The family of this 195-nucleotide RNA from Oryza meridionalis is "MIR812 microRNA precursor family". The match comes from Rfam's covariance-model search (102 bits).

[Rfam]
RNA sequence: UUUUAGCGCAACCAUAAAUUUUUUAUCCAACUUUAAUCGUCCGUCUUAUUUAAAAACUUUUUAAAAGAAUUAAAAAAUAUAAAUCACACAUAAAAUACUAUUCAAGUUUUCUCAUCUAACAACAAAAAAAAAUACCAAUCAUAAAAUAAAACAGAUGAUCAAAGUUGGACACGAAAACUCAUAGAUGUGUUUAAA
Numbered sequence: 001u002u003u004u005a006g007c008g009c010a011a012c013c014a015u016a017a018a019u020u021u022u023u024u025a026u027c028c029a030a031c032u033u034u035a036a037u038c039g040u041c042c043g044u045c046u047u048a049u050u051u052a053a054a055a056a057c058u059u060u061u062u063a064a065a066a067g068a069a070u071u072a073a074a075a076a077a078u079a080u081a082a083a084u085c086a087c088a089c090a091u092a093a094a095a096u097a098c099u100a101u102u103c104a105a106g107u108u109u110u111c112u113c114a115u116c117u118a119a120c121a122a123c124a125a126a127a128a129a130a131a132a133u134a135c136c137a138a139u140c141a142u143a144a145a146a147u148a149a150a151a152c153a154g155a156u157g158a159u160c161a162a163a164g165u166u167g168g169a170c171a172c173g174a175a176a177a178c179u180c181a182u183a184g185a186u187g188u189g190u191u192u193a194a195a
Base pairs, nucleotide, nucleotide: 026169027168028167029166030165031164032163033162034161036159037158038157039156040155041154043152044151046149047148048147049146